Ascomycota telomerase RNA: a 216-nucleotide part of an RNA from Cordyceps javanica.
NCBI's taxonomy places the organism under Eukaryota, Fungi, Sordariomycetes, Cordycipitaceae, Cordyceps.
Rfam 15.1 lists 475 matches to the family in 456 species.
A reference for the family is Qi et al. (2013), "The common ancestral core of vertebrate and fungal telomerase RNAs", Nucleic Acids Res.
It scores 242 bits against the family's covariance model.
[Rfam]
RNA sequence: UGUCCUACAGUUCACCGGCUCUCAUUUUCCGCAAGGAAUGUCUACUGGAGACCCCUCUAUGAUGGCCCGGAUGCCCGCACAAGCCGCUCCCGAGCCUGUAUCAGAAUCUCGCCGCUAGCUGCUGCUGGACACUGUCGCGGGUCCAAAGCAUCCAACGAGGGAUGCCCGGCCGACUCGGAGGGAAUGCGUGUCGGAACUUAACCCUAAGUAAUCAUU
Dot-bracket structure: ........(((...((((............................................................................................................................................................................)))).)))..................
Numbered sequence: 001u002g003u004c005c006u007a008c009a010g011u012u013c014a015c016c017g018g019c020u021c022u023c024a025u026u027u028u029c030c031g032c033a034a035g036g037a038a039u040g041u042c043u044a045c046u047g048g049a050g051a052c053c054c055c056u057c058u059a060u061g062a063u064g065g066c067c068c069g070g071a072u073g074c075c076c077g078c079a080c081a082a083g084c085c086g087c088u089c090c091c092g093a094g095c096c097u098g099u100a101u102c103a104g105a106a107u108c109u110c111g112c113c114g115c116u117a118g119c120u121g122c123u124g125c126u127g128g129a130c131a132c133u134g135u136c137g138c139g140g141g142u143c144c145a146a147a148g149c150a151u152c153c154a155a156c157g158a159g160g161g162a163u164g165c166c167c168g169g170c171c172g173a174c175u176c177g178g179a180g181g182g183a184a185u186g187c188g189u190g191u192c193g194g195a196a197c198u199u200a201a202c203c204c205u206a207a208g209u210a211a212u213c214a215u216u
Stems, first nucleotide, its partner, number of pairs: 009198003015194004
Annotation: The family is grouped with related families in Rfam's "Telomerase clan". The pairing is the family consensus, mapped onto this sequence.